[Rfam]
RNA sequence: UCUUAUAGCUCGAAUGUAGGGCUACUCUAAAUCAUAAGAUUUGAGGAUUAACUUGGCUAUAUGCUGGAAACUCUUAAAGUUUUAAGUACGAGAUAUUUUAAAAUAUCUGUAAAAAUCUUAAAAAUAUAACAAUAGACAAUCAGCAGAUAACCAACGACUAUUUUUAUAGUCUCCACACCAAAGGUGUGGGGACCGCGGAGCAGUCUAGUAGAAAUCUCAGAGACUACGCGCCAAGUAUGCAAUAUAAAAUAUUGUAUAAAGAUAUAGUCCAAAAUUAUAAAAUUAUUUUUGCU
Number, nucleotide and partner (000 for none) at each position: 001u021002c020003u019004u018005a017006u016007a015008g000009c000010u000011c000012g000013a000014a000015u007016g006017u005018a004019g003020g002021g001022c000023u000024a000025c000026u000027c000028u000029a000030a040031a000032u038033c000034a000035u000036a000037a000038g032039a000040u030041u000042u000043g000044a000045g000046g000047a000048u000049u000050a000051a236052c235053u234054u233055g232056g000057c230058u000059a000060u000061a000062u145063g144064c143065u142066g141067g140068a000069a000070a000071c000072u136073c135074u134075u000076a000077a000078a000079g000080u000081u000082u000083u000084a000085a000086g000087u000088a000089c000090g000091a000092g000093a000094u000095a000096u000097u000098u000099u000100a000101a000102a000103a000104u000105a000106u000107c000108u000109g000110u000111a000112a000113a000114a000115a000116u000117c000118u000119u000120a000121a000122a000123a000124a000125u000126a000127u000128a000129a000130c000131a000132a000133u000134a074135g073136a072137c000138a000139a000140u067141c066142a065143g064144c063145a062146g216147a215148u000149a000150a000151c211152c000153a000154a000155c000156g000157a000158c000159u000160a000161u000162u000163u000164u000165u000166a000167u000168a000169g000170u000171c000172u000173c000174c000175a000176c000177a000178c000179c000180a000181a000182a000183g000184g000185u000186g000187u000188g000189g000190g000191g000192a000193c000194c000195g000196c000197g000198g000199a000200g000201c000202a000203g000204u000205c000206u000207a000208g000209u000210a000211g151212a000213a000214a000215u147216c146217u000218c000219a000220g270221a000222g269223a268224c267225u266226a265227c000228g000229c000230g057231c000232c055233a054234a053235g052236u051237a000238u256239g255240c254241a253242a252243u251244a250245u249246a000247a000248a000249a245250u244251a243252u242253u241254g240255u239256a238257u000258a000259a000260a000261g000262a000263u000264a000265u226266a225267g224268u223269c222270c220271a000272a000273a000274a000275u000276u000277a000278u291279a290280a289281a288282a287283u000284u000285a000286u000287u282288u281289u280290u279291g278292c000293u000